A member of the RNA family "c-di-GMP-I riboswitch aptamer" from a Mycoplasmatota bacterium, 83 nucleotides long. A search with the family's covariance model found it, with a score of 67 bits. NCBI's taxonomy places the organism under Bacteria, Bacillati, Mycoplasmatota.
RNA sequence: UAUGAAUAUUGGUAAACCUUAAGAAAUUAAGGGACACAAAACUAUAGGGACUAAGCCGUUUGGUAUGUUAGCCAGUUGCGUAA
Dot-bracket structure: ...........((...((((((....))))))...))..((((...(((((....((....))...)))..))))))......